[Rfam]
RNA sequence: CAAAAAACAAUGAUGAGACGAGUAACUUAUAAAAGCUUUUUCAGAGAGAAGAUGCAGUGGUGGGAGCAUCUUUAAAGACUAUAAGUGAAGACUACCUCGGAGUGAUUGUAAAACAAUUCGGUGACCCCGUUAUCGUCAGUAAAGCGAGUGACUUUAACUUUGGUAAGUUUAAGCAUGAAUGAAUAGUUCUUUAUAGGGAGGAAGCAUUCAUAUAACUUAGCCAAGCAAAGUAACAAGGGUGGAACCGCGGGAAUACAUAUCCCCGUCCCUUUU
Numbered sequence: 001c002a003a004a005a006a007a008c009a010a011u012g013a014u015g016a017g018a019c020g021a022g023u024a025a026c027u028u029a030u031a032a033a034a035g036c037u038u039u040u041u042c043a044g045a046g047a048g049a050a051g052a053u054g055c056a057g058u059g060g061u062g063g064g065a066g067c068a069u070c071u072u073u074a075a076a077g078a079c080u081a082u083a084a085g086u087g088a089a090g091a092c093u094a095c096c097u098c099g100g101a102g103u104g105a106u107u108g109u110a111a112a113a114c115a116a117u118u119c120g121g122u123g124a125c126c127c128c129g130u131u132a133u134c135g136u137c138a139g140u141a142a143a144g145c146g147a148g149u150g151a152c153u154u155u156a157a158c159u160u161u162g163g164u165a166a167g168u169u170u171a172a173g174c175a176u177g178a179a180u181g182a183a184u185a186g187u188u189c190u191u192u193a194u195a196g197g198g199a200g201g202a203a204g205c206a207u208u209c210a211u212a213u214a215a216c217u218u219a220g221c222c223a224a225g226c227a228a229a230g231u232a233a234c235a236a237g238g239g240u241g242g243a244a245c246c247g248c249g250g251g252a253a254u255a256c257a258u259a260u261c262c263c264c265g266u267c268c269c270u271u272u273u
Base pairs, nucleotide, nucleotide: 007103008102015098016097017096025086026085027084028083029082030081037076038075039074048073049072050071051070052069053068105117106116107115108114109113119129120128121127151231152230153229154228155227236270237269238268239267247266248265249264250263251262
Shown here is a 273-nucleotide RNA from Cellulosilyticum lentocellum, a member of the family "T-box leader". It scores 103 bits against the family's covariance model. The literature on the family includes a 2000 paper in RNA by Grundy et al., "tRNA determinants for transcription antitermination of the Bacillus subtilis tyrS gene". Rfam classes the family as a cis-regulatory leader. The organism belongs to Cellulosilyticum lentocellum, within Bacteria. From the family's description: Uncharged tRNA acts as the effector for transcription antitermination of genes in the T-box leader family.